About this RNA
The family of this 75-nucleotide sequence from Nocardioides sp. Root122 is "Actino-pnp RNA". Rfam classes the family as a cis-regulatory element.

RNA sequence: CUCGGUCCUCGGUAGUGGCCUUCAGGUGCCCACCCACUCGGGUACGACACCUGCGGGCCUCGAUCGAAGACCGGC
Numbered sequence: 001c002u003c004g005g006u007c008c009u010c011g012g013u014a015g016u017g018g019c020c021u022u023c024a025g026g027u028g029c030c031c032a033c034c035c036a037c038u039c040g041g042g043u044a045c046g047a048c049a050c051c052u053g054c055g056g057g058c059c060u061c062g063a064u065c066g067a068a069g070a071c072c073g074g075c
Stems, first nucleotide, its partner, number of pairs: 002074006009067005017059005023053006